[Rfam]
RNA sequence: UCUGGCAGUGAUGACAUACUUGCCCUCACUGAGAACAGCGUUCACUGAUGAGGAUUUAAAUUUUGUACUCAAAAGACCUGAGCCAGA
Dot-bracket structure: ((((((...........................................................................))))))
RNA: Small nucleolar RNA SNORD103/SNORD85